Metazoan signal recognition particle RNA: a 292-nucleotide RNA sequence from Oncorhynchus tshawytscha. From the family's description: The signal recognition particle (SRP) is a universally conserved ribonucleoprotein. Rfam classes the family as a non-coding RNA gene. The source organism's lineage runs through Eukaryota, Deuterostomia, Teleostomi, Actinopteri and Oncorhynchus. On this family, see Batey et al., Science 2000: "Crystal structure of the ribonucleoprotein core of the signal recognition particle".
[Rfam]
RNA sequence: GCCGUGUGGUGGCAUGUGCCUGUAAUCCAAGUUACUGGGAGGCUGGGUUGGUGGAUCAAGUGAGCUGAGGAGCUCUGGGCUGCAGCACACUAUGUCGAACGGGUGUCCACGCUAAGUUCGGUAUCGAUAUGGUGUUCCUGGGGGAGCCCGGGACCACCAGGUUGUCUAAGGAGGGGUGAACCGGCCCAGGUCGGAAACGAAGCAGGUCAAAUCCCCCGUGCUGUCCAGUAGUGGGUAAUACCUGUGAGUAGAUGCUGCAGUGCAGCCUUGGCCAACUUCGAGACCUAAUCUU
Numbered sequence: 001g002c003c004g005u006g007u008g009g010u011g012g013c014a015u016g017u018g019c020c021u022g023u024a025a026u027c028c029a030a031g032u033u034a035c036u037g038g039g040a041g042g043c044u045g046g047g048u049u050g051g052u053g054g055a056u057c058a059a060g061u062g063a064g065c066u067g068a069g070g071a072g073c074u075c076u077g078g079g080c081u082g083c084a085g086c087a088c089a090c091u092a093u094g095u096c097g098a099a100c101g102g103g104u105g106u107c108c109a110c111g112c113u114a115a116g117u118u119c120g121g122u123a124u125c126g127a128u129a130u131g132g133u134g135u136u137c138c139u140g141g142g143g144g145a146g147c148c149c150g151g152g153a154c155c156a157c158c159a160g161g162u163u164g165u166c167u168a169a170g171g172a173g174g175g176g177u178g179a180a181c182c183g184g185c186c187c188a189g190g191u192c193g194g195a196a197a198c199g200a201a202g203c204a205g206g207u208c209a210a211a212u213c214c215c216c217c218g219u220g221c222u223g224u225c226c227a228g229u230a231g232u233g234g235g236u237a238a239u240a241c242c243u244g245u246g247a248g249u250a251g252a253u254g255c256u257g258c259a260g261u262g263c264a265g266c267c268u269u270g271g272c273c274a275a276c277u278u279c280g281a282g283a284c285c286u287a288a289u290c291u292u
Base pairs, nucleotide, nucleotide: 001043002042003041004019005018006017007016008015026040027039028038045291046290047289048288049287050286051285056281057280059278060277064272065271066270067269068268069267070266075265076264077263079261080260081259082258083257084256085255086254087253090251091250092249093248095246099245100244101243102242103241104240105239106238107235108234110233111232112231113230114229116226119223120222121221122220123219124218125164126163127162128161130159131158132157133156134155136153137152138151139150140149141148142147165171166170173216174215175214176213183208184207185206186205191200192199193198